[Rfam]
RNA sequence: UUACGGCCGGGGCGAUCUACUCCACAGACAAUAGACGCCCCGCCUGAAAAAAAGGAGGAAACAUCCGGCAUCUCCCGGUGCGGCAGUGUGGAGACCUGUCGUAAUGCGGCCCGAAAAGCCGCGAGAGCGCCCCUUGCGGAGGCAGAGCGCCCAGAGACAAGCAAAAUGGCA
Numbered sequence: 001u002u003a004c005g006g007c008c009g010g011g012g013c014g015a016u017c018u019a020c021u022c023c024a025c026a027g028a029c030a031a032u033a034g035a036c037g038c039c040c041c042g043c044c045u046g047a048a049a050a051a052a053a054g055g056a057g058g059a060a061a062c063a064u065c066c067g068g069c070a071u072c073u074c075c076c077g078g079u080g081c082g083g084c085a086g087u088g089u090g091g092a093g094a095c096c097u098g099u100c101g102u103a104a105u106g107c108g109g110c111c112c113g114a115a116a117a118g119c120c121g122c123g124a125g126a127g128c129g130c131c132c133c134u135u136g137c138g139g140a141g142g143c144a145g146a147g148c149g150c151c152c153a154g155a156g157a158c159a160a161g162c163a164a165a166a167u168g169g170c171a
Base pairs, nucleotide, nucleotide: 006044008042009041010040011039012038013037014036016035017034018033019032065078066077067076068075071157072156073155074154079103080102081101082100083099084098085097086096088095089094106122107121108120109119110118125152127150128149129148130147132145135144136143137142
RNA: malK-I RNA